[Rfam]
Nucleotides: 086
Base pairs, nucleotide, nucleotide: 001025002024005022006021007020008019009018010017011016038045039044047086048085049084056079057078058077059076060075061074
Number, partner (000 for none) and nucleotide at each position: 001025u002024a003000a004000c005022c006021c007020g008019g009018g010017c011016c012000g013000a014000g015000a016011g017010g018009c019008c020007c021006g022005g023000c024002u025001g026000a027000a028000c029000c030000g031000g032000c033000a034000g035000g036000a037000g038045u039044c040000a041000g042000c043000a044039g045038a046000g047086g048085g049084c050000a051000u052000a053000g054000u055000a056079c057078c058077c059076g060075g061074u062000a063000g064000g065000u066000c067000a068000u069000g070000a071000a072000c073000c074061g075060c076059c077058g078057g079056g080000g081000a082000a083000g084049g085048c086047c

The record is an 86-nucleotide RNA from Thermodesulfitimonas autotrophica, which matches "Group II catalytic intron D1-D4-1" in Rfam.
A search with the family's covariance model found it, with a score of 74 bits.
From the family's description: Group II introns are found in rRNA, tRNA and mRNA of organelles in fungi, plants and protists, and also in mRNA in bacteria.